[Rfam]
RNA sequence: AGCUGAGGCACAUGAUGGCCACCUCCCAGUGCCAUCGCGUCAGCUGUUCCCCUCUGGAGGUUUCAAACCUUCACACCUGAUAGGCCCCGGCACACGCUGUGGGCCUUUUUU
Dot-bracket structure: (((((..((.....((((.............)))).))..))))).........(((((((.....)))))))........((((((((((....)))).)))))).....
Shown here is a 111-nucleotide sequence from Xaviernesmea oryzae, a member of the family "Alphaproteobacterial ar15".
Gene Ontology term of the family: protein binding.
Pairs were carried over by alignment from the consensus structure.
A reference for the family is del Val et al. (2012), "A survey of sRNA families in alpha-proteobacteria", RNA Biol.
Lineage of the source: Bacteria > Pseudomonadati > Pseudomonadota > Rhizobiaceae > Xaviernesmea.